Shown here is a 129-nucleotide sequence from Podarcis muralis, a member of the family "Small nucleolar RNA SNORA68". U68 is a member of the H/ACA class of small nucleolar RNAs (snoRNAs) which act as guides in the the modification of uridines to pseudouridines. NCBI's taxonomy places the organism under Eukaryota, Dipnotetrapodomorpha, Tetrapoda, Episquamata, Podarcis. Rfam links the family to the GO terms nucleolus and RNA processing. By type it is an H/ACA-box small nucleolar RNA. The literature on the family includes a 1997 paper in Genes Dev by Ganot et al., "The family of box ACA small nucleolar RNAs is defined by an evolutionarily conserved secondary structure and ubiquitous sequence elements essential for RNA accumulation". Rfam 15.1 lists 1,079 matches to the family in 643 species. It scores 108 bits against the family's covariance model.

RNA sequence: ACUGCAUACAAACCCAAAGAACAUUGUUUAUAAUAAAAUGUUCUUGCCGUGUGUGCAGAUAUUAAAUGUACCUUGUCGCCUUUCAAGAGCUGCUGUGCCUUUGAAAGUGAAAUUGAAGGUCCUACAAAU
Numbered sequence: 001a002c003u004g005c006a007u008a009c010a011a012a013c014c015c016a017a018a019g020a021a022c023a024u025u026g027u028u029u030a031u032a033a034u035a036a037a038a039u040g041u042u043c044u045u046g047c048c049g050u051g052u053g054u055g056c057a058g059a060u061a062u063u064a065a066a067u068g069u070a071c072c073u074u075g076u077c078g079c080c081u082u083u084c085a086a087g088a089g090c091u092g093c094u095g096u097g098c099c100u101u102u103g104a105a106a107g108u109g110a111a112a113u114u115g116a117a118g119g120u121c122c123u124a125c126a127a128a129u
Base pairs, nucleotide, nucleotide: 002058003057004056005055006054007053008052009051019043020042021041022040023039024038025037027036028035068122070120071119072118073117074116080107081106082105083104084103085102086101087100089098090097